Record summary
The family of this 75-nucleotide RNA from Myotis myotis is "mir-9223 microRNA precursor family". Gene Ontology terms of the family: miRNA-mediated post-transcriptional gene silencing and RISC complex. Pairs were carried over by alignment from the consensus structure, which was predicted with RNAalifold. The family has 9 seed sequences and 14,641 matches in Rfam 15.1. A search with the family's covariance model found it, with a score of 84 bits. NCBI's taxonomy places the organism under Eukaryota, Eumetazoa, Eutheria, Boreoeutheria, Myotis.
RNA sequence: GGCAGUUCUUGGGUGAUGCACCCUGGAAUCGGGCUCUCUCCUCUCUGGUUCUGGGUGUAUCACCUGAGUACUGUA
Numbered sequence: 001g002g003c004a005g006u007u008c009u010u011g012g013g014u015g016a017u018g019c020a021c022c023c024u025g026g027a028a029u030c031g032g033g034c035u036c037u038c039u040c041c042u043c044u045c046u047g048g049u050u051c052u053g054g055g056u057g058u059a060u061c062a063c064c065u066g067a068g069u070a071c072u073g074u075a
Stems, first nucleotide, its partner, number of pairs: 002074002005071002008068010019057005025052009